A member of the RNA family "Vault RNA" from Aotus nancymaae, 99 nucleotides long. A search with the family's covariance model found it, with a score of 61 bits.
RNA sequence: AGGCCGGCUUUAGUUCAGCAGUUACUUCGACAAUGCUUUCUAUAGUGGAAAACAACACUCUGCGUGGUUCAAGACCCGUGGGCGCUCUCUGGCCCUUUA
Numbered sequence: 001a002g003g004c005c006g007g008c009u010u011u012a013g014u015u016c017a018g019c020a021g022u023u024a025c026u027u028c029g030a031c032a033a034u035g036c037u038u039u040c041u042a043u044a045g046u047g048g049a050a051a052a053c054a055a056c057a058c059u060c061u062g063c064g065u066g067g068u069u070c071a072a073g074a075c076c077c078g079u080g081g082g083c084g085c086u087c088u089c090u091g092g093c094c095c096u097u098u099a
Base pairs, nucleotide, nucleotide: 002094003093004092005091006090007089013083014082015081016080018079019078021076026073027072029070030069